[Rfam]
RNA sequence: CGCCUGUUUCGCUCAGGCGGAGCUCAACCGCCCGUUCAAGCGGUGAUCGCCUUUAUUGACGAUCACCGAGAGGCAUACGGGGUCGAGCCGAUCUGCAAGGUCUUGCCGAUCGCCCGG
Numbered sequence: 001c002g003c004c005u006g007u008u009u010c011g012c013u014c015a016g017g018c019g020g021a022g023c024u025c026a027a028c029c030g031c032c033c034g035u036u037c038a039a040g041c042g043g044u045g046a047u048c049g050c051c052u053u054u055a056u057u058g059a060c061g062a063u064c065a066c067c068g069a070g071a072g073g074c075a076u077a078c079g080g081g082g083u084c085g086a087g088c089c090g091a092u093c094u095g096c097a098a099g100g101u102c103u104u105g106c107c108g109a110u111c112g113c114c115c116g117g
Stems, first nucleotide, its partner, number of pairs: 016032005078117001080115003089112002092109002095106004
Record summary: The family of this 117-nucleotide sequence from Azorhizobium caulinodans is "ALIL pseudoknot". Lineage of the source: Bacteria > Pseudomonadota > Alphaproteobacteria > Xanthobacteraceae > Azorhizobium caulinodans. By type it is a cis-regulatory element. For this family Rfam cites "Apical loop-internal loop RNA pseudoknots: a new type of stimulator of -1 translational frameshifting in bacteria" (Mazauric et al., J Biol Chem, 2008).